[Rfam]
RNA sequence: UCACUCUGGAAAGCAGGGCGGGCCACGGGCGAGUACGGCUCCCGGACCCCUCCUCACCGACGGUGAAAGCCGGCUCGCCGCCCGCGGGCCUGGUGAAGCUCUCAGGUUGAGAUGACAGAGGGGGA
Numbered sequence: 001u002c003a004c005u006c007u008g009g010a011a012a013g014c015a016g017g018g019c020g021g022g023c024c025a026c027g028g029g030c031g032a033g034u035a036c037g038g039c040u041c042c043c044g045g046a047c048c049c050c051u052c053c054u055c056a057c058c059g060a061c062g063g064u065g066a067a068a069g070c071c072g073g074c075u076c077g078c079c080g081c082c083c084g085c086g087g088g089c090c091u092g093g094u095g096a097a098g099c100u101c102u103c104a105g106g107u108u109g110a111g112a113u114g115a116c117a118g119a120g121g122g123g124g125a
Base pairs, nucleotide, nucleotide: 001123002122004120005119006118007117008116015054016053017052018051056107057106058105059103060102063101065099069094070093071092072091073090
Dot-bracket structure: ((.(((((......((((................................)))).(((((..(.(...(((((................)))))....).))).)))........))))).))..
Shown here is a 125-nucleotide sequence from Streptomyces bingchenggensis, a member of the family "Glycine riboswitch aptamer". It scores 35 bits against the family's covariance model. NCBI's taxonomy places the organism under Bacteria, Bacillati, Actinomycetes, Streptomycetaceae, Streptomyces bingchenggensis.